[Rfam]
RNA sequence: GCAGGUACGGGGACAUGGUGCCCAGCACAAUCGCCGGCAAGAUCUUUGGCUCCAUCUGCUCACUCAGCGGGGUGCUGGUCAUUGCCCUGCCGGUGCCUGUUAUUGUCUCCAAC
Numbered sequence: 001g002c003a004g005g006u007a008c009g010g011g012g013a014c015a016u017g018g019u020g021c022c023c024a025g026c027a028c029a030a031u032c033g034c035c036g037g038c039a040a041g042a043u044c045u046u047u048g049g050c051u052c053c054a055u056c057u058g059c060u061c062a063c064u065c066a067g068c069g070g071g072g073u074g075c076u077g078g079u080c081a082u083u084g085c086c087c088u089g090c091c092g093g094u095g096c097c098u099g100u101u102a103u104u105g106u107c108u109c110c111a112a113c
Base pairs, nucleotide, nucleotide: 001113004110005109007106008105009104010103012101013100014099015098017096020094021093036076037075038074039073049061
Potassium channel RNA editing signal: a 113-nucleotide sequence from Vombatus ursinus. Rfam describes the family as follows. This family represents a group of sequences related to the human potassium channel Kv1.1 hairpin element which directs the efficient modification of an adenosine to inosine by an adenosine deaminase acting on RNA (ADAR). The ADAR modification causes an isoleucine/valine recoding event which lies in the ion-conducting pore of the potassium channel. It is thought that this editing event targets the process of fast inactivation and allows a more rapid recovery from inactivation at negative potentials. The family's consensus secondary structure is taken from published work. The source organism's lineage runs through Eukaryota, Bilateria, Gnathostomata, Theria and Vombatus. It scores 80 bits against the family's covariance model.